Small nucleolar RNA snoR74: a 127-nucleotide sequence from Musa troglodytarum. The match comes from Rfam's covariance-model search (83 bits). The base pairs follow the family's consensus structure, which was predicted with WAR.
RNA sequence: AGAAAAGCAGGGCCAUGAUUUGUCCAUAAUCAAGCCUUGUAAAUUUUAGGGAAAUUAUAUCCAUUAUUAUUGGGUGAACCUGUGUACAUUGUUGAUGACAGAAGGUUCAGUAAACAAUGAGACAUGU
Numbered sequence: 001a002g003a004a005a006a007g008c009a010g011g012g013c014c015a016u017g018a019u020u021u022g023u024c025c026a027u028a029a030u031c032a033a034g035c036c037u038u039g040u041a042a043a044u045u046u047u048a049g050g051g052a053a054a055u056u057a058u059a060u061c062c063a064u065u066a067u068u069a070u071u072g073g074g075u076g077a078a079c080c081u082g083u084g085u086a087c088a089u090u091g092u093u094g095a096u097g098a099c100a101g102a103a104g105g106u107u108c109a110g111u112a113a114a115c116a117a118u119g120a121g122a123c124a125u126g127u
Stems, first nucleotide, its partner, number of pairs: 005046003011037002014034001016032002062119004067114002075109007